The record is a 122-nucleotide RNA, which matches "drum RNA" in Rfam. The family's RNA type in Rfam is small RNA.
[Rfam]
RNA sequence: AGGCGUUUUAAAGCAAAGUGUAGAAUCUGGAAGGGCUGUGCUUUGCAAAGUCUUACGACGGUUCUCCGUUUACCAAAAGCCAGAUGUAGGCUGAAUUUUUCAGCUGAAGGAAAAUGGAAUGU
Dot-bracket structure: ((((........(((((((((((...[[[[.....)))))))))))...))))............(((...........]]]].....(((((((...))))))).........))).....

From the family's description: Firmicutes, Bacteroidetes (1 example), Proteobacteria (2 examples), Spirochaetes (2 examples). The sequence is in the family's curated seed alignment.